The record is a 63-nucleotide RNA from Haemonchus contortus, which matches "mir-234 microRNA precursor family" in Rfam.
The source organism's lineage runs through Eukaryota, Eumetazoa, Bilateria, Protostomia and Haemonchus.
Pairs were carried over by alignment from the consensus structure, which was predicted with RNAalifold.
Nucleotides: 063
Stems, first nucleotide, its partner, number of pairs: 007056006017046002020044007
Number, partner (000 for none) and nucleotide at each position: 001000c002000g003000g004000a005000c006000g007056g008055u009054a010053u011052u012051c013000a014000a015000g016000u017046g018045c019000u020044a021043a022042u023041a024040a025039u026038a027000c028000g029000c030000c031000a032000u033000u034000a035000c036000g037000a038026u039025a040024u041023u042022a043021u044020u045018g046017c047000u048000c049000g050000a051012g052011a053010a054009u055008a056007c057000c058000c059000g060000u061000c062000g063000c